[Rfam]
RNA sequence: AGCAAAAUGAUGAGGAACUAUUAGCUGAAUUUUUUUAUGUUGAAGAUAUAUAUCAUAAGCCUUCAAAGUUCUCUGAUUGCG
Numbered sequence: 001a002g003c004a005a006a007a008u009g010a011u012g013a014g015g016a017a018c019u020a021u022u023a024g025c026u027g028a029a030u031u032u033u034u035u036u037a038u039g040u041u042g043a044a045g046a047u048a049u050a051u052a053u054c055a056u057a058a059g060c061c062u063u064c065a066a067a068g069u070u071c072u073c074u075g076a077u078u079g080c081g
Base pairs, nucleotide, nucleotide: 002080003079004078005077
Dot-bracket structure: .((((.......................................................................)))).
The family of this 81-nucleotide sequence from Anisodus acutangulus is "Small nucleolar RNA R160". The family's RNA type in Rfam is C/D-box small nucleolar RNA. About the family: snoR160 is a C/D box small nucleolar RNA, which acts as a methylation guide for 25S ribosomal RNA in plants. snoR160 has been alternatively named snoZ270 in rice. The base pairs follow the family's consensus structure.